[Rfam]
A member of the RNA family "Plastid-ccsA-ndhD-1 3UTR RNA", 56 nucleotides long.
By type it is a cis-regulatory element.
Its Rfam clan is "Plastid-ccsA_ndhD 3UTR RNA clan".
For this family Rfam cites "Retrograde signaling in plants: A critical review focusing on the GUN pathway and beyond" (Richter et al., Plant Commun, 2023).
From the family's description: Plastid-ccsA-ndhD-1 is a non-coding RNA (ncRNA) recognised in plastids. It was found in the three prime untranslated region (3UTR) of ccsA and ndhD genes, its 3UTR location suggests a role in transcript maturation.
RNA sequence: UGAACCAGCGAGAACCAUGUGAAUCACUUAUACUUGAUUCACGUGGUUCUCACAAC
Number, nucleotide and partner (000 for none) at each position: 001u000002g000003a000004a000005c000006c000007a000008g053009c000010g051011a050012g049013a048014a047015c046016c045017a044018u043019g042020u041021g040022a039023a038024u037025c036026a035027c000028u000029u000030a000031u000032a000033c000034u000035u026036g025037a024038u023039u022040c021041a020042c019043g018044u017045g016046g015047u014048u013049c012050u011051c010052a000053c008054a000055a000056c000